[Rfam]
RNA sequence: CGGAUGACAAAUCAGUAUGUAUAACUUCGCUCAACUACUAGGCCUACUACUACACGCAUCUAUGCGCGGUAUGCCGGUGGGCGAAAUGCAGAACUGAUUUCACUUACACCUGAAAAACCCGCGCCAAUGCGCGGGUUUUUUU
Numbered sequence: 001c002g003g004a005u006g007a008c009a010a011a012u013c014a015g016u017a018u019g020u021a022u023a024a025c026u027u028c029g030c031u032c033a034a035c036u037a038c039u040a041g042g043c044c045u046a047c048u049a050c051u052a053c054a055c056g057c058a059u060c061u062a063u064g065c066g067c068g069g070u071a072u073g074c075c076g077g078u079g080g081g082c083g084a085a086a087u088g089c090a091g092a093a094c095u096g097a098u099u100u101c102a103c104u105u106a107c108a109c110c111u112g113a114a115a116a117a118c119c120c121g122c123g124c125c126a127a128u129g130c131g132c133g134g135g136u137u138u139u140u141u142u
Base pairs, nucleotide, nucleotide: 009100010099012097013096014095015094016093018091027084028083029082030081031080032079033078035076048071049070050069051068055066056065057064058063114139115138116137117136118135119134120133121132122131123130124129

Notes:
Leucine operon leader: a 142-nucleotide sequence from Prodigiosinella confusarubida. The literature on the family includes a 1982 paper in Annu Rev Genet by Kolter and Yanofsky, "Attenuation in amino acid biosynthetic operons". At least 6 amino acid operons are known to be regulated by attenuation. In each a leader sequence of 150-200 bp is found upstream of the first gene in the operon. This leader sequence can assume two different secondary structures known as the terminator and the anti-terminator structure. In each case the leader also codes for very short peptide sequence that is rich in the end product amino acid of the operon. By type it is a cis-regulatory leader. The base pairs follow the family's consensus structure, which is taken from published work. Gene Ontology term of the family: leucine biosynthetic process.